RNA sequence: ACCGCAUCUAGCCUGAGGCUGAUCCCCAAGGGCGAACACCGGGAAACCCUUGCCCGGCUGGUGCGGUUUCCGAUUCAAGGG
Numbered sequence: 001a002c003c004g005c006a007u008c009u010a011g012c013c014u015g016a017g018g019c020u021g022a023u024c025c026c027c028a029a030g031g032g033c034g035a036a037c038a039c040c041g042g043g044a045a046a047c048c049c050u051u052g053c054c055c056g057g058c059u060g061g062u063g064c065g066g067u068u069u070c071c072g073a074u075u076c077a078a079g080g081g
Base pairs, nucleotide, nucleotide: 001067002066003065004064005063006062007061008060011033012032013031014030039057040056041055042054043053047081048080049079050078051077052076